[Rfam]
The family of this 84-nucleotide RNA from Plectosphaerella plurivora is "tRNA". The organism belongs to Plectosphaerella, within Eukaryota. A search with the family's covariance model found it, with a score of 57 bits. Pairs were carried over by alignment from the consensus structure, which is taken from published work. The family's RNA type in Rfam is transfer RNA.

RNA sequence: GCCCGGCUAGCUCAAUCGGUAGAGCGUGAGACUCUUACCAGAGUACACAUCUCAAGGUUGUGGGUUCGACCCCCACGUCGGGCU
Numbered sequence: 001g002c003c004c005g006g007c008u009a010g011c012u013c014a015a016u017c018g019g020u021a022g023a024g025c026g027u028g029a030g031a032c033u034c035u036u037a038c039c040a041g042a043g044u045a046c047a048c049a050u051c052u053c054a055a056g057g058u059u060g061u062g063g064g065u066u067c068g069a070c071c072c073c074c075a076c077g078u079c080g081g082g083c084u
Stems, first nucleotide, its partner, number of pairs: 001083007010025004027054005060076005